[Rfam]
RNA sequence: UUAUAUAUGCGUAUGUGAUUGCAGGGUUCUAAGCUUUACGGAAAAUCCAACCGAAAGUUCCUUAAAUAAGAAACUUUCGAUUGGGUUUUCCGUAAAGCUUAAAACCCCGCAAUUGCAUACACAUAUAUAA
Numbered sequence: 001u002u003a004u005a006u007a008u009g010c011g012u013a014u015g016u017g018a019u020u021g022c023a024g025g026g027u028u029c030u031a032a033g034c035u036u037u038a039c040g041g042a043a044a045a046u047c048c049a050a051c052c053g054a055a056a057g058u059u060c061c062u063u064a065a066a067u068a069a070g071a072a073a074c075u076u077u078c079g080a081u082u083g084g085g086u087u088u089u090c091c092g093u094a095a096a097g098c099u100u101a102a103a104a105c106c107c108c109g110c111a112a113u114u115g116c117a118u119a120c121a122c123a124u125a126u127a128u129a130a
Stems, first nucleotide, its partner, number of pairs: 001130009011120012024107002027104002030101012070089007
The record is a 130-nucleotide sequence from Brassica napus, which matches "MIR9555 microRNA precursor family" in Rfam. Pairs were carried over by alignment from the consensus structure, which was predicted with RNAalifold. Gene Ontology terms of the family: RISC complex and miRNA-mediated post-transcriptional gene silencing.